The record is a 72-nucleotide sequence from Phaeobacter italicus, which matches "Singlet oxygen resistance RNA X" in Rfam. The match comes from Rfam's covariance-model search (80 bits). The family's RNA type in Rfam is small RNA. From the family's description: SorX (RSs2461)like SorY is a singlet oxygen induced sRNA that counteracts oxidative stress by targeting mRNA for a transporter in Rhodobacter. It also has an impact on resistance against organic hydroperoxides. It targets SD sequence of potA mRNA via an aSD sequence. The aSD sequence and some neighbouring nucleotides are identical to the one of SorY (targets takP mRNA).
RNA sequence: UUCCCGCGCAUGUCCGGGUUAUGACAUGCACCUCCCUGUUGGACUGCCGGGCCUUUGUGCCCGGCUUUUUUU
Number, nucleotide and partner (000 for none) at each position: 001u000002u000003c000004c000005c000006g000007c000008g029009c028010a027011u026012g025013u024014c023015c000016g000017g000018g000019u000020u000021a000022u000023g014024a013025c012026a011027u010028g009029c008030a000031c000032c000033u000034c000035c000036c000037u000038g000039u000040u000041g000042g000043a000044c000045u000046g065047c064048c063049g062050g061051g060052c059053c000054u000055u000056u000057g000058u000059g052060c051061c050062c049063g048064g047065c046066u000067u000068u000069u000070u000071u000072u000